[Rfam]
RNA sequence: CUUUUACCAAUGUAAAAGACUUAUGCGGAUAACAACCGCGUACCUAGGAGAACUAGGAUUGGACUCCUAUAAAGGAGAAACAAAUG
Numbered sequence: 001c002u003u004u005u006a007c008c009a010a011u012g013u014a015a016a017a018g019a020c021u022u023a024u025g026c027g028g029a030u031a032a033c034a035a036c037c038g039c040g041u042a043c044c045u046a047g048g049a050g051a052a053c054u055a056g057g058a059u060u061g062g063a064c065u066c067c068u069a070u071a072a073a074g075g076a077g078a079a080a081c082a083a084a085u086g
Stems, first nucleotide, its partner, number of pairs: 001018005022042007043057004
RNA: freshwater-2 RNA